[Rfam]
RNA sequence: AAGAAAGGGCGUACGGGGGAUGCCCGGGCAUCAGGACGCGAUGAAGGACGUGGCUUUCUGCGAUAAGCAACGGGGAGUUGUAAGCAAGCAUUGAUCCGUUGAUUUCCGAAUGGGGCAACCCUCUUGGUGAAUAACCGAGAACGCAAACGCGAGCAAAGUCGGGGAAUUGAAACAUCUUAGUACCCGGAAUAAAAGAAAAUAAAAAUGAUUCCGUCAGUAGCGGUGAGCGAACGCGGAAGAGCCUAAACCCCUGCCUACGUUACAGAUCUAAUUCGCUGUAGCAGGGGUGUUGUAGGACUGGCAGGAGUAGAUUAGAAUGCUCCACAAAGUUACCAAGCACAAGAUUAGCAGAACGGUAUUGGAAAAGCCGACCAUAGAGGGUGAAAGUCCUGUAAGCGAAAAUUUUGUGCCUUUGGCCAGUAUCCUGAGUACCACGGAACACGUGUAAUUCAGUGGGAAUCUGCGGGGACCACCCCGUAAGGCUAAACAGUACCUGAUGACCGAUAGAGAACAAGUACCGCGAGGGAAAGGUGAAAAGUACCGGGGGACCGGAGUGAAAUAGUACCUGAAACCGUAUGCUUACAAGGU
Numbered sequence: 001a002a003g004a005a006a007g008g009g010c011g012u013a014c015g016g017g018g019g020a021u022g023c024c025c026g027g028g029c030a031u032c033a034g035g036a037c038g039c040g041a042u043g044a045a046g047g048a049c050g051u052g053g054c055u056u057u058c059u060g061c062g063a064u065a066a067g068c069a070a071c072g073g074g075g076a077g078u079u080g081u082a083a084g085c086a087a088g089c090a091u092u093g094a095u096c097c098g099u100u101g102a103u104u105u106c107c108g109a110a111u112g113g114g115g116c117a118a119c120c121c122u123c124u125u126g127g128u129g130a131a132u133a134a135c136c137g138a139g140a141a142c143g144c145a146a147a148c149g150c151g152a153g154c155a156a157a158g159u160c161g162g163g164g165a166a167u168u169g170a171a172a173c174a175u176c177u178u179a180g181u182a183c184c185c186g187g188a189a190u191a192a193a194a195g196a197a198a199a200u201a202a203a204a205a206u207g208a209u210u211c212c213g214u215c216a217g218u219a220g221c222g223g224u225g226a227g228c229g230a231a232c233g234c235g236g237a238a239g240a241g242c243c244u245a246a247a248c249c250c251c252u253g254c255c256u257a258c259g260u261u262a263c264a265g266a267u268c269u270a271a272u273u274c275g276c277u278g279u280a281g282c283a284g285g286g287g288u289g290u291u292g293u294a295g296g297a298c299u300g301g302c303a304g305g306a307g308u309a310g311a312u313u314a315g316a317a318u319g320c321u322c323c324a325c326a327a328a329g330u331u332a333c334c335a336a337g338c339a340c341a342a343g344a345u346u347a348g349c350a351g352a353a354c355g356g357u358a359u360u361g362g363a364a365a366a367g368c369c370g371a372c373c374a375u376a377g378a379g380g381g382u383g384a385a386a387g388u389c390c391u392g393u394a395a396g397c398g399a400a401a402a403u404u405u406u407g408u409g410c411c412u413u414u415g416g417c418c419a420g421u422a423u424c425c426u427g428a429g430u431a432c433c434a435c436g437g438a439a440c441a442c443g444u445g446u447a448a449u450u451c452a453g454u455g456g457g458a459a460u461c462u463g464c465g466g467g468g469a470c471c472a473c474c475c476c477g478u479a480a481g482g483c484u485a486a487a488c489a490g491u492a493c494c495u496g497a498u499g500a501c502c503g504a505u506a507g508a509g510a511a512c513a514a515g516u517a518c519c520g521c522g523a524g525g526g527a528a529a530g531g532u533g534a535a536a537a538g539u540a541c542c543g544g545g546g547g548a549c550c551g552g553a554g555u556g557a558a559a560u561a562g563u564a565c566c567u568g569a570a571a572c573c574g575u576a577u578g579c580u581u582a583c584a585a586g587g588u
Stems, first nucleotide, its partner, number of pairs: 007581010022566001023531002027502002029499007036491002038154002046107003049062003068101007077089003112121003122140007142151003159187005169176002199206002209487001210237005220228002240484004248287007294426003298420005335412001337410010348397002354370004359366001373377001379391003432456004437451003463478005518525002541552004
Dot-bracket structure: ......((((((((((.....(((..(((((((((((((......((((((........))).....(((((((..(((.......))).....)))))))...)))....(((....)))(((((((.....))))))).(((....))).))....(((((.....((....))......)))))...........((....))..((((((.....((.....))....)))))..((((....(((((((..........................)))))))......(((.(((((................................(.((((((((((.((....((((.(......)))))..(...).(((.......)))....))...)))))))))).)...)))))...))).....((((.(((.........))).))))......(((((......)))))..))))..)..)).))))))).))...............((....))....)).........((((....)))).............).....)))))))))).......
Bacterial large subunit ribosomal RNA: a 588-nucleotide part of an RNA from Leptospira interrogans.
The source organism's lineage runs through Bacteria, Leptospiria, Leptospiraceae, Leptospira and Leptospira interrogans serovar Copenhageni.
Rfam's curators put it in the seed alignment.